[Rfam]
RNA sequence: ACACAGCAUUCGGGAGAGACCCGUUGACCCGGGCGCCGAAGGGGCAAUUCCUCCCCGGAACCUCUCAGGCCCAUGGACCGAGUGCCACAG
Numbered sequence: 001a002c003a004c005a006g007c008a009u010u011c012g013g014g015a016g017a018g019a020c021c022c023g024u025u026g027a028c029c030c031g032g033g034c035g036c037c038g039a040a041g042g043g044g045c046a047a048u049u050c051c052u053c054c055c056c057g058g059a060a061c062c063u064c065u066c067a068g069g070c071c072c073a074u075g076g077a078c079c080g081a082g083u084g085c086c087a088c089a090g
Base pairs, nucleotide, nucleotide: 006085007084008083009082010081011080012079013078020033021032022031023030035070036069037068038066039065042064043063044062048058049057